[Rfam]
RNA: transfer-messenger RNA
RNA sequence: GGGGGUGUAAAGGUUUCGACUUAGAAAUGAAGCGUUAAUUGCAUGCGGAGGGCGUUGGCUGGCCUCCUAAAAAGCCGACAAAACAAUAAAUGCCGAACCUAAGGCUGAAUGCGAAAUUAUCAGCUUCGCUGAUCUCGAAGAUCUAAGAGUAGCUGCUUAAUUAGCAAAGUUGUUACCUAAAUACGGGUGACCCGGUGUUCGCGAGCUCCACCAGAGGUUUUCGAAACACCGUCAUGUAUCUGGUUAGAACUUAGGUCCUUUAAUUCUCGAGGAAAUGAGUUUGAAAUUUAAUGAGAGUCGUUAGUCUCUAUAGGGGUUUCUAGCUGAGGAGACAUAACGUAUAGUACCUAGGAACUAAGCAUGUAGAGGUUAGCGGGGAGUUUACUAAGGACGAGAGUUCGACUCUCUCCACCUCCA
Numbered sequence: 001g002g003g004g005g006u007g008u009a010a011a012g013g014u015u016u017c018g019a020c021u022u023a024g025a026a027a028u029g030a031a032g033c034g035u036u037a038a039u040u041g042c043a044u045g046c047g048g049a050g051g052g053c054g055u056u057g058g059c060u061g062g063c064c065u066c067c068u069a070a071a072a073a074g075c076c077g078a079c080a081a082a083a084c085a086a087u088a089a090a091u092g093c094c095g096a097a098c099c100u101a102a103g104g105c106u107g108a109a110u111g112c113g114a115a116a117u118u119a120u121c122a123g124c125u126u127c128g129c130u131g132a133u134c135u136c137g138a139a140g141a142u143c144u145a146a147g148a149g150u151a152g153c154u155g156c157u158u159a160a161u162u163a164g165c166a167a168a169g170u171u172g173u174u175a176c177c178u179a180a181a182u183a184c185g186g187g188u189g190a191c192c193c194g195g196u197g198u199u200c201g202c203g204a205g206c207u208c209c210a211c212c213a214g215a216g217g218u219u220u221u222c223g224a225a226a227c228a229c230c231g232u233c234a235u236g237u238a239u240c241u242g243g244u245u246a247g248a249a250c251u252u253a254g255g256u257c258c259u260u261u262a263a264u265u266c267u268c269g270a271g272g273a274a275a276u277g278a279g280u281u282u283g284a285a286a287u288u289u290a291a292u293g294a295g296a297g298u299c300g301u302u303a304g305u306c307u308c309u310a311u312a313g314g315g316g317u318u319u320c321u322a323g324c325u326g327a328g329g330a331g332a333c334a335u336a337a338c339g340u341a342u343a344g345u346a347c348c349u350a351g352g353a354a355c356u357a358a359g360c361a362u363g364u365a366g367a368g369g370u371u372a373g374c375g376g377g378g379a380g381u382u383u384a385c386u387a388a389g390g391a392c393g394a395g396a397g398u399u400c401g402a403c404u405c406u407c408u409c410c411a412c413c414u415c416c417a
Base pairs, nucleotide, nucleotide: 001416002415003414004413005412006411007410020389021388022387023386024385026383033375034374035373036372037371038370039369040368042363043362044361045360046359047067048066049065050064051063054079055078056077057076058075059074060073150175151174152173153172155170156169157168158167193231194230195229196228197227198225199224200223201222203220204219205218206217210244211243212242213241214240215239245284247282248281249280250279251278252277263298264297265296266295267294268293299339300338301337302336303335304333305332311326312325313324316355317354318353321350322349323348393409394408395407396406397405